[Rfam]
The record is an 87-nucleotide RNA sequence from Desulfosporosinus sp. HMP52, which matches "c-di-GMP-I riboswitch aptamer" in Rfam. Clan: c-di-GMP_I riboswitch clan.
RNA sequence: UUAUUGACAAGGCAAACUGAGUGAAAGCUCAGGACGCAAAGCUACGGAUCUUCUACUCUUAGGGGUAAAGAUGGCCGAGUUACCAAU
Numbered sequence: 001u002u003a004u005u006g007a008c009a010a011g012g013c014a015a016a017c018u019g020a021g022u023g024a025a026a027g028c029u030c031a032g033g034a035c036g037c038a039a040a041g042c043u044a045c046g047g048a049u050c051u052u053c054u055a056c057u058c059u060u061a062g063g064g065g066u067a068a069a070g071a072u073g074g075c076c077g078a079g080u081u082a083c084c085a086a087u
Stems, first nucleotide, its partner, number of pairs: 012037002017032006040081004045077003048072003055066004
Lineage of the source: Bacteria > Bacillati > Bacillota > Clostridia > Desulfosporosinus. About the family: GEMM was predicted in a large-scale screen for bacterial structured RNA regulatory elements.